[Rfam]
A member of the RNA family "Group II catalytic intron D1-D4-3" from Petrimonas mucosa, 175 nucleotides long. The literature on the family includes a 2001 paper in Trends Genet by Bonen and Vogel, "The ins and outs of group II introns".
RNA sequence: UUGCGGGUAACUGCAAAUCUGAAAGAAGCCAUCAGCAAAUCUGAAGUUCUGACGCACAGAAACCUGAUAUAAGGCUCACAAGAGAGGGCAACCGAGCAAUGGAUUGGGAACGCCCAAAAUUCAACCGUAACUCAAGUGGAGUAAAUCAGGCAGAACGCAGAGAAAGUUUAAUAUC
Numbered sequence: 001u002u003g004c005g006g007g008u009a010a011c012u013g014c015a016a017a018u019c020u021g022a023a024a025g026a027a028g029c030c031a032u033c034a035g036c037a038a039a040u041c042u043g044a045a046g047u048u049c050u051g052a053c054g055c056a057c058a059g060a061a062a063c064c065u066g067a068u069a070u071a072a073g074g075c076u077c078a079c080a081a082g083a084g085a086g087g088g089c090a091a092c093c094g095a096g097c098a099a100u101g102g103a104u105u106g107g108g109a110a111c112g113c114c115c116a117a118a119a120u121u122c123a124a125c126c127g128u129a130a131c132u133c134a135a136g137u138g139g140a141g142u143a144a145a146u147c148a149g150g151c152a153g154a155a156c157g158c159a160g161a162g163a164a165a166g167u168u169u170a171a172u173a174u175c
Base pairs, nucleotide, nucleotide: 001016002015003014004013005012006011028175031172032171035167036166040161041160042159043158046156047155048154049153050152051151063150064149065148066147067146068145074142075141076140078137079136082133083132084131086115087114088113089112092107093106094105095104